[Rfam]
RNA: Polymerase ribosomal frameshift site
RNA sequence: UUUAAACUGUUGAGAGGUGCCUGGAGCGCCUGCAGGCAUCUCUGUUUUCAAAAUGGCGCAUACCAGUCUUCAAGGUCAAAACAUUAUAUUGAUUUGGCAACUGAGUAUAAUGCAGGCA
Numbered sequence: 001u002u003u004a005a006a007c008u009g010u011u012g013a014g015a016g017g018u019g020c021c022u023g024g025a026g027c028g029c030c031u032g033c034a035g036g037c038a039u040c041u042c043u044g045u046u047u048u049c050a051a052a053a054u055g056g057c058g059c060a061u062a063c064c065a066g067u068c069u070u071c072a073a074g075g076u077c078a079a080a081a082c083a084u085u086a087u088a089u090u091g092a093u094u095u096g097g098c099a100a101c102u103g104a105g106u107a108u109a110a111u112g113c114a115g116g117c118a
Stems, first nucleotide, its partner, number of pairs: 013043011028117005